[Rfam]
RNA: DUF3800-VIII RNA
RNA sequence: AAUCCCCUGCUUUGCCGAAGCCCUGCAUUCCACGCGGGGUACUUUAUAGGCAAAGCGGGGGAUU
Numbered sequence: 001a002a003u004c005c006c007c008u009g010c011u012u013u014g015c016c017g018a019a020g021c022c023c024u025g026c027a028u029u030c031c032a033c034g035c036g037g038g039g040u041a042c043u044u045u046a047u048a049g050g051c052a053a054a055g056c057g058g059g060g061g062a063u064u
Base pairs, nucleotide, nucleotide: 001064002063003062004061005060006059007058008057009056010055011054012053013052014051015050016049020040021039022038023037024036025035026034028032